Background: The record is a 121-nucleotide sequence from Pseudaminobacter soli, which matches "Alphaproteobacterial ar14" in Rfam. The base pairs follow the family's consensus structure. About the family: Smr14C2 was renamed NfeR1 (Nodule Formation Efficiency RNA) highly expressed in salt stress and during the symbiotic interaction on legume roots. On this family, see del Val et al., RNA Biol 2012: "A survey of sRNA families in alpha-proteobacteria".
[Rfam]
RNA sequence: GGAAUUUCGUCGGCGCCUACCUCCUCCCGGGCCCGAUGAAUAAGGUCAGUGUUCACCUCCUCCCGAUCACUGACCACCCUAACGGCACCCGCCGAACCUCCUCCCUCGGCGGGUGCUGUUC
Numbered sequence: 001g002g003a004a005u006u007u008c009g010u011c012g013g014c015g016c017c018u019a020c021c022u023c024c025u026c027c028c029g030g031g032c033c034c035g036a037u038g039a040a041u042a043a044g045g046u047c048a049g050u051g052u053u054c055a056c057c058u059c060c061u062c063c064c065g066a067u068c069a070c071u072g073a074c075c076a077c078c079c080u081a082a083c084g085g086c087a088c089c090c091g092c093c094g095a096a097c098c099u100c101c102u103c104c105c106u107c108g109g110c111g112g113g114u115g116c117u118g119u120u121c
Base pairs, nucleotide, nucleotide: 007039008038009037011035012034013033015032016031017030044075045074046073047072048071049070050069051068053066085116086115087114088113089112090111091110092109093108094107095106